[Rfam]
RNA sequence: CUCUCGCUCAAAGAAUCGCAUUCGAAGCACACAAACAGAGAGAUCUUCCGAUCUCUCAGCCAGCAAUGGCUUCUUCUUGCUUUGGGAGAAAGUCCCCGGACACCCUUUCUUUGAAAGGAUUGUGGAAACACGCCGCCAUAGAAGCACAUUGCGGCUUCUCCAGUACCAAUUCCUCUUCGACUCCUCCACCCACAUACCGUUUGUACUGCCUUCUUGUCGAUCUCUGGACCACGGUCUUAGCUGAGGAUACCAUAUGGAUGAAGAUAUGAGUCCGAGCUCCUUGCGCGACGUCUAUUGGGACUUGGUGAGGUGGGAUUGUGGGAGGUGUUUGGACUGUUCUUGGAUCGUCGAGGAUGUUCUGGUCGCUGGAGGCAUUUCGUCGAGAACGAUAGUUAUGCGAUUGCCUUUCUCUUGCUGUGCAAACAGUGAGAGGGGUAACUCGAUGGGGCUUAUUCUUGAUGCGAGA
Numbered sequence: 001c002u003c004u005c006g007c008u009c010a011a012a013g014a015a016u017c018g019c020a021u022u023c024g025a026a027g028c029a030c031a032c033a034a035a036c037a038g039a040g041a042g043a044u045c046u047u048c049c050g051a052u053c054u055c056u057c058a059g060c061c062a063g064c065a066a067u068g069g070c071u072u073c074u075u076c077u078u079g080c081u082u083u084g085g086g087a088g089a090a091a092g093u094c095c096c097c098g099g100a101c102a103c104c105c106u107u108u109c110u111u112u113g114a115a116a117g118g119a120u121u122g123u124g125g126a127a128a129c130a131c132g133c134c135g136c137c138a139u140a141g142a143a144g145c146a147c148a149u150u151g152c153g154g155c156u157u158c159u160c161c162a163g164u165a166c167c168a169a170u171u172c173c174u175c176u177u178c179g180a181c182u183c184c185u186c187c188a189c190c191c192a193c194a195u196a197c198c199g200u201u202u203g204u205a206c207u208g209c210c211u212u213c214u215u216g217u218c219g220a221u222c223u224c225u226g227g228a229c230c231a232c233g234g235u236c237u238u239a240g241c242u243g244a245g246g247a248u249a250c251c252a253u254a255u256g257g258a259u260g261a262a263g264a265u266a267u268g269a270g271u272c273c274g275a276g277c278u279c280c281u282u283g284c285g286c287g288a289c290g291u292c293u294a295u296u297g298g299g300a301c302u303u304g305g306u307g308a309g310g311u312g313g314g315a316u317u318g319u320g321g322g323a324g325g326u327g328u329u330u331g332g333a334c335u336g337u338u339c340u341u342g343g344a345u346c347g348u349c350g351a352g353g354a355u356g357u358u359c360u361g362g363u364c365g366c367u368g369g370a371g372g373c374a375u376u377u378c379g380u381c382g383a384g385a386a387c388g389a390u391a392g393u394u395a396u397g398c399g400a401u402u403g404c405c406u407u408u409c410u411c412u413u414g415c416u417g418u419g420c421a422a423a424c425a426g427u428g429a430g431a432g433g434g435g436u437a438a439c440u441c442g443a444u445g446g447g448g449c450u451u452a453u454u455c456u457u458g459a460u461g462c463g464a465g466a
Stems, first nucleotide, its partner, number of pairs: 002466006008459004014402006022086001023084006038057007090451003094448004111119002120141006144373002152369001154367001156365001161362001163360001172353004336346001338344002404435008
The record is a 466-nucleotide RNA sequence from Mollisia scopiformis, which matches "RNase MRP" in Rfam. RNase MRP is an enzymatically active ribonucleoprotein with two distinct roles in eukaryotes. In mitochondria it plays a direct role in the initiation of mitochondrial DNA replication. In the nucleus it is involved in precursor rRNA processing, where it cleaves the internal transcribed spacer 1 between 18S and 5.8S rRNAs. Despite distinct functions, RNase MRP has been shown to be evolutionarily related to RNase P. Like eukaryotic RNase P, RNase MRP is not catalytically active without associated protein subunits.